[Rfam]
RNA sequence: CGGGUCGGUUAGGCCAUCGCGGCACGCAGUGUCGAGGAAAGUCCGGGCUCCGCAGGGCGGGAUGGUGGGUAACGCCCACUCGGGGCAACCCGCAGGCCAGUGCCACAGAAAACAGACCGCCUGCUGCUGGUCCCCAGCGCAGGUAAGGGUGAAACGGUGGGGUAAGAGCCCACCAGCGCUUCAGGUGACUGAGGCGGCUUGGCAAACCCCAUCCGGAGCAAGGUCGAGCAGGAUACGUCCGAGGGCUGCCCGCCCGAGUAUCCGGGUUGACCGCUUGAGGUCCGCGGCAACGCGGCACCCAGAUGGAUGAUGGUCCACGACAGAACCCGGCUUACCGACCGGCCCGUCCC
Numbered sequence: 001c002g003g004g005u006c007g008g009u010u011a012g013g014c015c016a017u018c019g020c021g022g023c024a025c026g027c028a029g030u031g032u033c034g035a036g037g038a039a040a041g042u043c044c045g046g047g048c049u050c051c052g053c054a055g056g057g058c059g060g061g062a063u064g065g066u067g068g069g070u071a072a073c074g075c076c077c078a079c080u081c082g083g084g085g086c087a088a089c090c091c092g093c094a095g096g097c098c099a100g101u102g103c104c105a106c107a108g109a110a111a112a113c114a115g116a117c118c119g120c121c122u123g124c125u126g127c128u129g130g131u132c133c134c135c136a137g138c139g140c141a142g143g144u145a146a147g148g149g150u151g152a153a154a155c156g157g158u159g160g161g162g163u164a165a166g167a168g169c170c171c172a173c174c175a176g177c178g179c180u181u182c183a184g185g186u187g188a189c190u191g192a193g194g195c196g197g198c199u200u201g202g203c204a205a206a207c208c209c210c211a212u213c214c215g216g217a218g219c220a221a222g223g224u225c226g227a228g229c230a231g232g233a234u235a236c237g238u239c240c241g242a243g244g245g246c247u248g249c250c251c252g253c254c255c256g257a258g259u260a261u262c263c264g265g266g267u268u269g270a271c272c273g274c275u276u277g278a279g280g281u282c283c284g285c286g287g288c289a290a291c292g293c294g295g296c297a298c299c300c301a302g303a304u305g306g307a308u309g310a311u312g313g314u315c316c317a318c319g320a321c322a323g324a325a326c327c328c329g330g331c332u333u334a335c336c337g338a339c340c341g342g343c344c345c346g347u348c349c350c
Base pairs, nucleotide, nucleotide: 001346002345003344004343005342006341007340008339009338010337012315013314014313015312016311017310018309020034021033022032023031024030025029039333040332041331043330044329045328046327047326048218049217050216051215055251056250057249058248060214061213062212063211064210065079066078067077068076069075080094081092082091083090084089095209096208100207101206102203103202104201117148118147119144120143121142122141123140124139126138127137128136156174157173158172159171160170161169176198177196178195179194180193181192182191183190184189222272223271224270225269231263232262233261234260235259236258243255244254245253246252279298282295283294284293285292286291
Rfam assigns this 350-nucleotide sequence from Nesterenkonia natronophila to the family "Bacterial RNase P class A". The base pairs follow the family's consensus structure, which is taken from published work. The family's RNA type in Rfam is ribozyme. The match comes from Rfam's covariance-model search (300 bits).